RNA sequence: AGCGUUUUUCGCAGCGGCGGAGGUCGACCGCCGACUGCGGUGAGCGUCGACUAUAUCGACGCUCACCGGGAACGGUUCGGGGUCGACCCGAUCUGCCGCGUGCUCACCGAGCACGGCAUGGCGAUCGCCCCG
Numbered sequence: 001a002g003c004g005u006u007u008u009u010c011g012c013a014g015c016g017g018c019g020g021a022g023g024u025c026g027a028c029c030g031c032c033g034a035c036u037g038c039g040g041u042g043a044g045c046g047u048c049g050a051c052u053a054u055a056u057c058g059a060c061g062c063u064c065a066c067c068g069g070g071a072a073c074g075g076u077u078c079g080g081g082g083u084c085g086a087c088c089c090g091a092u093c094u095g096c097c098g099c100g101u102g103c104u105c106a107c108c109g110a111g112c113a114c115g116g117c118a119u120g121g122c123g124a125u126c127g128c129c130c131c132g
Stems, first nucleotide, its partner, number of pairs: 016032005078132005089127002092124002095122004
Dot-bracket structure: ...............(((((.......))))).............................................(((((......((.((.((((....................)))))).)))))))
RNA: ALIL pseudoknot
Organism: Gordonia sihwensis